Shown here is a 95-nucleotide sequence from Lapidilactobacillus dextrinicus, a member of the family "THF (Tetrahydrofolate) riboswitch aptamer".
RNA sequence: UUCGGAGUAGGCGACUAAGCGUUAAGUGCUGAUGGAACGGAAUGUGAACGUCAGACAAAGGGAUUUCCCGCGAUUUAGUUGCCGCAUUCGCCGCA
Numbered sequence: 001u002u003c004g005g006a007g008u009a010g011g012c013g014a015c016u017a018a019g020c021g022u023u024a025a026g027u028g029c030u031g032a033u034g035g036a037a038c039g040g041a042a043u044g045u046g047a048a049c050g051u052c053a054g055a056c057a058a059a060g061g062g063a064u065u066u067c068c069c070g071c072g073a074u075u076u077a078g079u080u081g082c083c084g085c086a087u088u089c090g091c092c093g094c095a
Base pairs, nucleotide, nucleotide: 001095003093004092005091010083011082012081013080014079015078016077017076018075019074020072021071022070026056027055029054030053031052032051033050034049040089041088042087043086044085060069061068062067

Taxonomically the source falls in Lapidilactobacillus dextrinicus (Bacteria, Bacillati, Bacilli, Lactobacillaceae).